Shown here is an 87-nucleotide sequence from Peptococcaceae bacterium SCADC1_2_3, a member of the family "c-di-GMP-I riboswitch aptamer". The match comes from Rfam's covariance-model search (51 bits). Its family is annotated with cyclic-di-GMP binding in the Gene Ontology.
RNA sequence: CGGUGUUAAGGGCAAACUCACCGAAAGGUGAAGAUGCAGAGCUAUAGGGCUUAAGUUGUUCUGCACUAUGAUAGCCUGGUUGCUGCU
Numbered sequence: 001c002g003g004u005g006u007u008a009a010g011g012g013c014a015a016a017c018u019c020a021c022c023g024a025a026a027g028g029u030g031a032a033g034a035u036g037c038a039g040a041g042c043u044a045u046a047g048g049g050c051u052u053a054a055g056u057u058g059u060u061c062u063g064c065a066c067u068a069u070g071a072u073a074g075c076c077u078g079g080u081u082g083c084u085g086c087u
Stems, first nucleotide, its partner, number of pairs: 012037002018031005040081004047075001048072001050070001055066002